[Rfam]
RNA: folP RNA
RNA sequence: CAUAUGGAGGAAAUGCCAUAACAAAGGAGGUAUCCUUUGGGCCUGAUUGAUGAUUAUUUCCCUGAUUAUCAAUUUUGCUGCGGUGCGGCUCAUACUCCUCAAU
Number, nucleotide and partner (000 for none) at each position: 001c000002a000003u020004a019005u018006g017007g016008a000009g000010g000011a000012a000013a000014u000015g000016c007017c006018a005019u004020a003021a000022c039023a038024a037025a036026g035027g034028a033029g000030g000031u000032a000033u028034c027035c026036u025037u024038u023039g022040g079041g078042c077043c000044u000045g074046a073047u072048u071049g070050a069051u068052g067053a066054u065055u064056a063057u000058u000059u000060c000061c000062c000063u056064g055065a054066u053067u052068a051069u050070c049071a048072a047073u046074u045075u000076u000077g042078c041079u040080g000081c000082g000083g000084u000085g000086c000087g000088g000089c000090u000091c000092a000093u000094a000095c000096u000097c000098c000099u000100c000101a000102a000103u000